Record summary: Bacterial large signal recognition particle RNA: a 265-nucleotide sequence from Desulfitobacterium metallireducens. The family's consensus secondary structure is taken from published work. The organism belongs to Desulfitobacterium metallireducens, within Bacteria. It is annotated as a non-coding RNA gene. The match comes from Rfam's covariance-model search (165 bits). The literature on the family includes a 2003 paper in Nucleic Acids Res by Rosenblad et al., "SRPDB: Signal Recognition Particle Database". The signal recognition particle (SRP) is a universally conserved ribonucleoprotein involved in the co-translational targeting of proteins to membranes.
[Rfam]
Nucleotides: 265
Base pairs, nucleotide, nucleotide: 001265002264003263004262005261006260010057011056012030013029014028015027016026019023035055036054037053038052039051064258065257066256069253073249074248075247076246077245079242080241081240082239083238085236086235087234088233092229093227094226095225096224097223098222104218105216106215107214113211115209116208117207118206119205120204121203122199123198124197125196126195127194128190129189131188132187134185135184138179139178140177141176147172148171149170150169155164156163157162
Number, partner (000 for none) and nucleotide at each position: 001265u002264c003263g004262u005261g006260c007000u008000a009000g010057a011056c012030g013029g014028g015027g016026u017000g018000g019023u020000g021000g022000c023019g024000g025000a026016a027015u028014c029013c030012u031000g032000u033000a034000a035055c036054c037053u038052g039051c040000a041000a042000u043000c044000c045000g046000c047000u048000g049000u050000a051039g052038c053037a054036g055035g056011g057010u058000g059000g060000a061000a062000u063000u064258c065257c066256u067000g068000c069253g070000c071000g072000a073249g074248g075247g076246c077245a078000a079242c080241g081240c082239u083238u084000g085236u086235g087234g088233a089000g090000c091000g092229g093227c094226c095225a096224a097223g098222u099000c100000u101000a102000a103000c104218u105216u106215g107214c108000g109000a110000u111000g112000a113211a114000a115209u116208u117207u118206g119205g120204g121203u122199c123198u124197u125196a126195c127194g128190c129189a130000a131188c132187a133000g134185a135184g136000c137000a138179c139178u140177u141176c142000g143000a144000a145000c146000c147172g148171u149170g150169u151000c152000a153000g154000a155164u156163c157162c158000u159000g160000a161000c162157g163156g164155a165000a166000g167000c168000a169150g170149c171148a172147c173000u174000a175000a176141g177140g178139a179138g180000c181000a182000c183000g184135c185134u186000a187132u188131g189129u190128g191000u192000g193000c194127c195126g196125u197124a198123a199122g200000g201000u202000c203121g204120c205119c206118u207117g208116a209115a210000c211113u212000g213000a214107g215106c216105a217000a218104g219000a220000a221000a222098g223097c224096u225095u226094g227093g228000a229092u230000u231000c232000g233088u234087c235086c236085g237000g238083a239082a240081g241080u242079g243000u244000u245077u246076g247075u248074u249073c250000g251000g252000a253069c254000a255000a256066a257065g258064g259000u260006g261005c262004a263003c264002g265001a